mir-2060 microRNA precursor family: a 90-nucleotide RNA sequence from Branchiostoma floridae.
Its family is annotated with miRNA-mediated post-transcriptional gene silencing and RISC complex in the Gene Ontology.
Pairs were carried over by alignment from the consensus structure, which was predicted with RNAalifold.

RNA sequence: GUUUGCCUUUGUAAACAUGGUGUUCAGCACCAAGGAUAGGCAUGUUUGUAUGUGGAUGGUGUUCAGCACCAAGGACAUGUAUGUUUGCCU
Numbered sequence: 001g002u003u004u005g006c007c008u009u010u011g012u013a014a015a016c017a018u019g020g021u022g023u024u025c026a027g028c029a030c031c032a033a034g035g036a037u038a039g040g041c042a043u044g045u046u047u048g049u050a051u052g053u054g055g056a057u058g059g060u061g062u063u064c065a066g067c068a069c070c071a072a073g074g075a076c077a078u079g080u081a082u083g084u085u086u087g088c089c090u
Base pairs, nucleotide, nucleotide: 004081005080006079008077010075018071019070020069021068022067023066024065026063027062028061029060030059031058032057034051036049037048038047039046040045